[Rfam]
RNA: Small Cajal body specific RNA 21
Organism: Oryctolagus cuniculus
RNA sequence: UGGCUCAGUUUCCUGGGGGGUGAGCUCAGCCUCCCCCACCUCCCCUCAGCUGAGCCUAGAGGAGACAGGCCAGGCACCUGCCCCCUGGAGAGGCGUUUAAGUAAGGAGCCUCGCCUGGCUGCCCUGGCCUCACAUUU
Numbered sequence: 001u002g003g004c005u006c007a008g009u010u011u012c013c014u015g016g017g018g019g020g021u022g023a024g025c026u027c028a029g030c031c032u033c034c035c036c037c038a039c040c041u042c043c044c045c046u047c048a049g050c051u052g053a054g055c056c057u058a059g060a061g062g063a064g065a066c067a068g069g070c071c072a073g074g075c076a077c078c079u080g081c082c083c084c085c086u087g088g089a090g091a092g093g094c095g096u097u098u099a100a101g102u103a104a105g106g107a108g109c110c111u112c113g114c115c116u117g118g119c120u121g122c123c124c125u126g127g128c129c130u131c132a133c134a135u136u137u
Stems, first nucleotide, its partner, number of pairs: 002056006015044008024035001067130004072125003078118003087110002